[Rfam]
RNA sequence: GAAGCCUGCCAGGCCGUCGCUGGUGCAUGUCCCGAAAGGGCGCACUGGAGGAACGUCCGGACUGCACAGGGCAGCGUAGGAGGUAACACCUCUCCACCGAAAGCCGCAAGGUAUAAGGUGAGGAUCAGAGCAACAGAGACGAGCCGAUUGAGUUCGGGUGAAACGGGCAAUCUCUACGCGCAGCAACACCAAAUAGGCACACGAUGAUGCGGCCCGCGGAGUGUGCGGGUAGGUGGCACCGAGCCGGGUGGGUGACCCCCGGCCCAGAUGAAUGACGGUCACGCCCCGGGUCACCGGGGUGCACAGAAUCCGGCGUAUCGGCGGGCUUCACAC
Numbered sequence: 001g002a003a004g005c006c007u008g009c010c011a012g013g014c015c016g017u018c019g020c021u022g023g024u025g026c027a028u029g030u031c032c033c034g035a036a037a038g039g040g041c042g043c044a045c046u047g048g049a050g051g052a053a054c055g056u057c058c059g060g061a062c063u064g065c066a067c068a069g070g071g072c073a074g075c076g077u078a079g080g081a082g083g084u085a086a087c088a089c090c091u092c093u094c095c096a097c098c099g100a101a102a103g104c105c106g107c108a109a110g111g112u113a114u115a116a117g118g119u120g121a122g123g124a125u126c127a128g129a130g131c132a133a134c135a136g137a138g139a140c141g142a143g144c145c146g147a148u149u150g151a152g153u154u155c156g157g158g159u160g161a162a163a164c165g166g167g168c169a170a171u172c173u174c175u176a177c178g179c180g181c182a183g184c185a186a187c188a189c190c191a192a193a194u195a196g197g198c199a200c201a202c203g204a205u206g207a208u209g210c211g212g213c214c215c216g217c218g219g220a221g222u223g224u225g226c227g228g229g230u231a232g233g234u235g236g237c238a239c240c241g242a243g244c245c246g247g248g249u250g251g252g253u254g255a256c257c258c259c260c261g262g263c264c265c266a267g268a269u270g271a272a273u274g275a276c277g278g279u280c281a282c283g284c285c286c287c288g289g290g291u292c293a294c295c296g297g298g299g300u301g302c303a304c305a306g307a308a309u310c311c312g313g314c315g316u317a318u319c320g321g322c323g324g325g326c327u328u329c330a331c332a333c
Stems, first nucleotide, its partner, number of pairs: 001329010011318001012280007020048007028040001053316003057313005062183004069215004074179005079093005094122001095120004123174002128172002130168002144157004187235004197226006208218003243263006250257002
Bacterial RNase P class A: a 333-nucleotide RNA from Tibeticola sediminis. Rfam describes the family as follows. Ribonuclease P (RNase P) is a ubiquitous endoribonuclease, found in archaea, bacteria and eukarya as well as chloroplasts and mitochondria. Its best characterised activity is the generation of mature 5'-ends of tRNAs by cleaving the 5'-leader elements of precursor-tRNAs. Cellular RNase Ps are ribonucleoproteins. The base pairs follow the family's consensus structure, which is taken from published work. Rfam links the family to the GO terms dimeric ribonuclease P complex, tRNA processing and ribonuclease P activity. Rfam classes the family as a ribozyme. NCBI's taxonomy places the organism under Bacteria, Pseudomonadati, Betaproteobacteria, Burkholderiales, Tibeticola.